[Rfam]
RNA: Small nucleolar RNA Z161/Z228
Organism: Hevea brasiliensis
RNA sequence: AAAUCAAAUGAUUUUUUAUUAUAAAUUUCUCACGAUGCUCAUCUGAGACGCUCAUGGUGUCCAUGCUGAUUCAAUAAUCCAAUGCUUCUGAUGGUU
Numbered sequence: 001a002a003a004u005c006a007a008a009u010g011a012u013u014u015u016u017u018a019u020u021a022u023a024a025a026u027u028u029c030u031c032a033c034g035a036u037g038c039u040c041a042u043c044u045g046a047g048a049c050g051c052u053c054a055u056g057g058u059g060u061c062c063a064u065g066c067u068g069a070u071u072c073a074a075u076a077a078u079c080c081a082a083u084g085c086u087u088c089u090g091a092u093g094g095u096u
Stems, first nucleotide, its partner, number of pairs: 001096002004093001049059003